Rfam assigns this 117-nucleotide RNA sequence from Actinomadura coerulea to the family "TPP riboswitch aptamer (THI element)". Rfam 15.1 lists 16,130 matches to the family in 8,693 species. It scores 57 bits against the family's covariance model.
[Rfam]
RNA sequence: ACCGAUAACCGCGGGAGCUCGGGCCACAGCCGGGCUGAGAGGGCGGCCUCCAAGGCGUCGCCGACCGCAUGAACCUGUCCGGGUAAUGCCGGCGUAGGGAGUGUGUGUCCCGUGACG
Numbered sequence: 001a002c003c004g005a006u007a008a009c010c011g012c013g014g015g016a017g018c019u020c021g022g023g024c025c026a027c028a029g030c031c032g033g034g035c036u037g038a039g040a041g042g043g044c045g046g047c048c049u050c051c052a053a054g055g056c057g058u059c060g061c062c063g064a065c066c067g068c069a070u071g072a073a074c075c076u077g078u079c080c081g082g083g084u085a086a087u088g089c090c091g092g093c094g095u096a097g098g099g100a101g102u103g104u105g106u107g108u109c110c111c112g113u114g115a116c117g
Stems, first nucleotide, its partner, number of pairs: 006105002010101001011068004017035005042062005074098004079092004